Rfam assigns this 82-nucleotide sequence from Caldisericum exile to the family "tRNA". Rfam links the family to the GO term triplet codon-amino acid adaptor activity. The organism belongs to Caldisericum exile, within Bacteria. From the family's description: Transfer RNA (tRNA) molecules are approximately 80 nucleotides in length. The base pairs follow the family's consensus structure, which is taken from published work. It is annotated as a transfer RNA. The match comes from Rfam's covariance-model search (56 bits).
RNA sequence: GCGAGGGUGGCGGAACUGGCAGACGCGCUGGACUUAGGAUCCAGUGAGGAAACUCAUGCGGGUUCAACUCCCGCCCUUCGCA
Number, nucleotide and partner (000 for none) at each position: 001g081002c080003g079004a078005g077006g076007g075008u000009g000010g026011c025012g024013g000014a000015a000016c000017u000018g000019g000020c000021a000022g000023a000024c012025g011026c010027g000028c044029u043030g042031g041032a040033c000034u000035u000036a000037g000038g000039a000040u032041c031042c030043a029044g028045u000046g000047a000048g000049g000050a000051a000052a000053c000054u000055c000056a000057u000058g074059c073060g072061g071062g070063u000064u000065c000066a000067a000068c000069u000070c062071c061072c060073g059074c058075c007076c006077u005078u004079c003080g002081c001082a000